[Rfam]
RNA sequence: GCACCAAGCCAGCCGGUGGAUGGCUCGGCUCGGGCGCCGACGAAGGGCGCGGCAAGCGGCGAAAUGCCCGGGGUAGGCGCAAGCAGCCUUUGAUCCCGGGAUUCCCGAAUGGGACCUCCUGCCCCAUUUGGGGCGCACCCGUGUAAAAAGCGGGUGCGGGAACCCCCCGAACGGAAGCAUCUUAGUAGGGGGAGGAGGAGAAAUCAACCGAGAUCCCCCGAGUAGGGGCGACCGAAAGGGGGAUAGCCCAAACCAAACCUGCCGGCGAUAAGUCGGUGGGGAUGUGGUGUUAUAGGCCCUAGGUCUGGGGGCAACCCCAGCCUCCCUGGCUUGCCUAGCCGAACUCCCUUGGAAUAGGGGGCCAAAGAGGGUGACAGCCCCGUAGGCUAAAGGCAAGUGGGAGGUGACCUAGGGCAGAGUACCAUCCCCUGGUUUGGGGGUGGGAAGUUGGGGGACAUGUGCCUCCAAGGCUAAAUACGUCCCGAGACCGAUAGCGAACUAAGUACCGUGAGGGAAAGCUGAAAAGCACCCCGGAAGGGGAGUGAAAAGUGCCUGAAACCGGCUGGUUACACAG
Numbered sequence: 001g002c003a004c005c006a007a008g009c010c011a012g013c014c015g016g017u018g019g020a021u022g023g024c025u026c027g028g029c030u031c032g033g034g035c036g037c038c039g040a041c042g043a044a045g046g047g048c049g050c051g052g053c054a055a056g057c058g059g060c061g062a063a064a065u066g067c068c069c070g071g072g073g074u075a076g077g078c079g080c081a082a083g084c085a086g087c088c089u090u091u092g093a094u095c096c097c098g099g100g101a102u103u104c105c106c107g108a109a110u111g112g113g114a115c116c117u118c119c120u121g122c123c124c125c126a127u128u129u130g131g132g133g134c135g136c137a138c139c140c141g142u143g144u145a146a147a148a149a150g151c152g153g154g155u156g157c158g159g160g161a162a163c164c165c166c167c168c169g170a171a172c173g174g175a176a177g178c179a180u181c182u183u184a185g186u187a188g189g190g191g192g193a194g195g196a197g198g199a200g201a202a203a204u205c206a207a208c209c210g211a212g213a214u215c216c217c218c219c220g221a222g223u224a225g226g227g228g229c230g231a232c233c234g235a236a237a238g239g240g241g242g243a244u245a246g247c248c249c250a251a252a253c254c255a256a257a258c259c260u261g262c263c264g265g266c267g268a269u270a271a272g273u274c275g276g277u278g279g280g281g282a283u284g285u286g287g288u289g290u291u292a293u294a295g296g297c298c299c300u301a302g303g304u305c306u307g308g309g310g311g312c313a314a315c316c317c318c319a320g321c322c323u324c325c326c327u328g329g330c331u332u333g334c335c336u337a338g339c340c341g342a343a344c345u346c347c348c349u350u351g352g353a354a355u356a357g358g359g360g361g362c363c364a365a366a367g368a369g370g371g372u373g374a375c376a377g378c379c380c381c382g383u384a385g386g387c388u389a390a391a392g393g394c395a396a397g398u399g400g401g402a403g404g405u406g407a408c409c410u411a412g413g414g415c416a417g418a419g420u421a422c423c424a425u426c427c428c429c430u431g432g433u434u435u436g437g438g439g440g441u442g443g444g445a446a447g448u449u450g451g452g453g454g455a456c457a458u459g460u461g462c463c464u465c466c467a468a469g470g471c472u473a474a475a476u477a478c479g480u481c482c483c484g485a486g487a488c489c490g491a492u493a494g495c496g497a498a499c500u501a502a503g504u505a506c507c508g509u510g511a512g513g514g515a516a517a518g519c520u521g522a523a524a525a526g527c528a529c530c531c532c533g534g535a536a537g538g539g540g541a542g543u544g545a546a547a548a549g550u551g552c553c554u555g556a557a558a559c560c561g562g563c564u565g566g567u568u569a570c571a572c573a574g
Stems, first nucleotide, its partner, number of pairs: 007568010022553001023519002027489002029486006035479002045106003048061003067100006076088003111120003136156007163194001164192005174181002204211002215242005225233002245472004253287003263275004300411004322403004338387003344360001346359004363367001369381003422443007450466005506513002
RNA: Archaeal large subunit ribosomal RNA, nucleotides 10 to 583